[Rfam]
Record summary
A member of the RNA family "Ribosomal protein L20 leader" from Eubacterium aggregans, 111 nucleotides long. Rfam's curators write: This family is a putative r-protein leader autoregulatory structure found in B. subtilis and other low-GC Gram-positive bacteria. It is located in the 5' untranslated regions of mRNAs encoding initiation factor 3 followed by ribosomal proteins L35 and L20 (infC-rpmI-rplT). A Rho-independent transcription terminator structure that is probably involved in regulation is included at the 3' end.

RNA sequence: GUAACGAAGUAGAAGUGUCCACUUCUCACCUAAUGCCACAGGCAUUGAGGUUAUAUCAUUUAAUGAUUGAAUGAGCAGGUGGACUAUGUCCAUCUGCUUUUAUAUUUUACC
Number, nucleotide and partner (000 for none) at each position: 001g000002u000003a000004a000005c000006g000007a000008a000009g000010u000011a026012g025013a024014a023015g022016u021017g000018u000019c000020c000021a016022c015023u014024u013025c012026u011027c000028a051029c050030c049031u000032a000033a045034u044035g043036c042037c000038a000039c000040a000041g000042g036043c035044a034045u033046u000047g000048a000049g030050g029051u028052u000053a000054u000055a000056u000057c000058a000059u000060u000061u000062a000063a000064u000065g000066a000067u000068u000069g000070a000071a000072u000073g000074a098075g097076c096077a095078g094079g093080u092081g091082g090083a089084c000085u000086a000087u000088g000089u083090c082091c081092a080093u079094c078095u077096g076097c075098u074099u000100u000101u000102a000103u000104a000105u000106u000107u000108u000109a000110c000111c000

A search with the family's covariance model found it, with a score of 63 bits.